[Rfam]
RNA sequence: GGGCUAAUGAUGAUAACAUUUAUACAUCUUAGCGGAUUUCAGUGAGAGUUAAUCUAUGAUCUGAAUGUUACACACACUGAAGCUC
Number, nucleotide and partner (000 for none) at each position: 001g085002g084003g083004c082005u081006a000007a000008u000009g000010a000011u000012g000013a000014u000015a000016a000017c000018a000019u000020u000021u000022a000023u000024a000025c000026a000027u000028c000029u000030u000031a000032g000033c000034g000035g000036a000037u000038u000039u000040c000041a000042g000043u000044g000045a000046g000047a000048g000049u000050u000051a000052a000053u000054c000055u000056a000057u000058g000059a000060u000061c000062u000063g000064a000065a000066u000067g000068u000069u000070a000071c000072a000073c000074a000075c000076a000077c000078u000079g000080a000081a005082g004083c003084u002085c001
Annotation: This 85-nucleotide RNA from Papaver nudicaule belongs to the Rfam family "Small nucleolar RNA R11/Z151". Taxonomically the source falls in Papaver (Eukaryota, Viridiplantae, Ranunculales, Papaveraceae). On this family, see Barneche et al., J Mol Biol 2001: "Identification of 66 box C/D snoRNAs in Arabidopsis thaliana: extensive gene duplications generated multiple isoforms predicting new ribosomal RNA 2'-O-methylation sites". It scores 77 bits against the family's covariance model.